[Rfam]
RNA sequence: CGUCAGAGCCGUGCUUGCGUGCCCUGUUGUGGGGUGUGUGGGUGGUGAUGGCGUGCCUUUUGAAGAAUGA
Numbered sequence: 001c002g003u004c005a006g007a008g009c010c011g012u013g014c015u016u017g018c019g020u021g022c023c024c025u026g027u028u029g030u031g032g033g034g035u036g037u038g039u040g041g042g043u044g045g046u047g048a049u050g051g052c053g054u055g056c057c058u059u060u061u062g063a064a065g066a067a068u069g070a
Stems, first nucleotide, its partner, number of pairs: 002052004008046005056069001058067001
Dot-bracket structure: .((((..(((((.............................)))))..))))...(.(........).).
Bacterial large subunit ribosomal RNA: a 70-nucleotide part of an RNA from Corynebacterium gerontici.
The base pairs follow the family's consensus structure, which is taken from published work.
Taxonomically the source falls in Corynebacterium (Bacteria, Bacillati, Actinomycetes, Mycobacteriales).